[Rfam]
RNA sequence: CCUGCCCCAAAUUUUGCAAAGUGGCUACCAUGUCAUCUUUGUUCAUUGGGUGGCAGAGAGCGAGGGGCUAUGUCUACACUCUGUGUUCUGAAACCCAUGAGCACUCAGAAUGAUUAAUAGCCUGACAUCG
Dot-bracket structure: ..((((((((.....((((...................))))...))))..))))..........(((......((..((...(((((..........)))))...))..)).......)))........